Source information
This 213-nucleotide RNA from Sesamum indicum belongs to the Rfam family "MIR168 microRNA precursor family". A reference for the family is Jagadeeswaran et al. (2009), "Cloning and characterization of small RNAs from Medicago truncatula reveals four novel legume-specific microRNA families", New Phytol. The match comes from Rfam's covariance-model search (90 bits). Taxonomically the source falls in Sesamum (Eukaryota, Streptophytina, Spermatophyta, eudicotyledons).
[Rfam]
RNA sequence: GUUGCGGCGGGUUCUGAUUCGCUUGGUGCAGGUCGGGAACUUUCUCCGCCGCCGGCGUGGUCUGCACGUUGGAUUAAUGAAAGUAUGCUCCGAAGCAGUAAGACUGCUUACGAGUAUACGUAGUACGAUGCGGUUGAAAAAUUUGAUAUCGUUCUUUCUGGUGAAAGAUCAGGUUCCCGCCUUGCAUCAACUGAAUCGGAGACCGCGGUGAAU
Numbered sequence: 001g002u003u004g005c006g007g008c009g010g011g012u013u014c015u016g017a018u019u020c021g022c023u024u025g026g027u028g029c030a031g032g033u034c035g036g037g038a039a040c041u042u043u044c045u046c047c048g049c050c051g052c053c054g055g056c057g058u059g060g061u062c063u064g065c066a067c068g069u070u071g072g073a074u075u076a077a078u079g080a081a082a083g084u085a086u087g088c089u090c091c092g093a094a095g096c097a098g099u100a101a102g103a104c105u106g107c108u109u110a111c112g113a114g115u116a117u118a119c120g121u122a123g124u125a126c127g128a129u130g131c132g133g134u135u136g137a138a139a140a141a142u143u144u145g146a147u148a149u150c151g152u153u154c155u156u157u158c159u160g161g162u163g164a165a166a167g168a169u170c171a172g173g174u175u176c177c178c179g180c181c182u183u184g185c186a187u188c189a190a191c192u193g194a195a196u197c198g199g200a201g202a203c204c205g206c207g208g209u210g211a212a213u
Stems, first nucleotide, its partner, number of pairs: 013200002017196004023190010034179005040173002